[Rfam]
A member of the RNA family "MIR5269 microRNA precursor family" from Medicago truncatula, 80 nucleotides long.
Rfam links the family to the GO terms RISC complex and miRNA-mediated post-transcriptional gene silencing.
RNA sequence: UUGGGUUAAAACAAUGUGGGUCAUAUACUUUGGAAAUGGAACCCACAUAAAAUGGUGGGACAUACAUUGAUUUUAUCCAA
Number, nucleotide and partner (000 for none) at each position: 001u080002u079003g078004g077005g076006u075007u000008a073009a072010a071011a000012c069013a068014a067015u066016g065017u064018g063019g000020g000021u000022c000023a000024u057025a056026u054027a053028c000029u051030u050031u049032g048033g000034a000035a000036a000037u000038g000039g000040a000041a000042c000043c000044c000045a000046c000047a000048u032049a031050a030051a029052a000053u027054g026055g000056u025057g024058g000059g000060a000061c000062a000063u018064a017065c016066a015067u014068u013069g012070a000071u010072u009073u008074u000075a006076u005077c004078c003079a002080a001